RNA: c-di-GMP-I riboswitch aptamer
RNA sequence: AAAUUGAAAAGGCAUACUUAUUGAAAGAUAAGGACGCAAAGCUAUGGGCCUUCGCGAUACUCGCAUGGUUGCCAGGUUGCCAAU
Number, nucleotide and partner (000 for none) at each position: 001a000002a000003a000004u000005u000006g000007a000008a000009a000010a000011g000012g037013c036014a000015u000016a000017c032018u031019u030020a029021u028022u027023g000024a000025a000026a000027g022028a021029u020030a019031a018032g017033g000034a000035c000036g013037c012038a000039a000040a078041g077042c076043u075044a000045u074046g073047g072048g069049c068050c067051u000052u000053c000054g000055c063056g062057a061058u000059a000060c000061u057062c056063g055064c000065a000066u000067g050068g049069u048070u000071g000072c047073c046074a045075g043076g042077u041078u040079g000080c000081c000082a000083a000084u000